Record summary
Shown here is an 87-nucleotide sequence from Halopseudomonas bauzanensis, a member of the family "t44 RNA". By type it is a small RNA.
RNA sequence: UCAGGUAUUUACUGAAACCGCACACGUAUCGACACGUUGUCCUGGGUGCCCUUCGGGGUUGGAUAGCGGGAUGCGUGGAGGCCCAAC
Dot-bracket structure: ......................((((((((....((((((((.....((((....)))).)))))))).))))))))..........
Source information
A search with the family's covariance model found it, with a score of 75 bits. Taxonomically the source falls in Halopseudomonas (Bacteria, Pseudomonadota, Gammaproteobacteria, Pseudomonadaceae). The base pairs follow the family's consensus structure, which was predicted with LocARNA.